The family of this 136-nucleotide RNA sequence from Sakesphorus luctuosus is "Small nucleolar RNA SNORA8". The organism belongs to Sakesphorus, within Eukaryota. Rfam links the family to the GO terms RNA processing and nucleolus.
RNA sequence: UGCUCUGUAUGGUACCUGCACCCAGCAGCAUUCUCCUGAUGGACUGUUCAGAAAACAGAGCUACAGCAGCAGUGUUGGCAUCUCUGCCUUUCAUUCUGCUGUGUCUGUUGGACAUCGUAUUUUUGCUGAAAGAGUC
Dot-bracket structure: .((((((.........((((..((.(((.......))).).)..)))....)...))))))..(((.((..((...(((((...................)))))........))....)).)))...........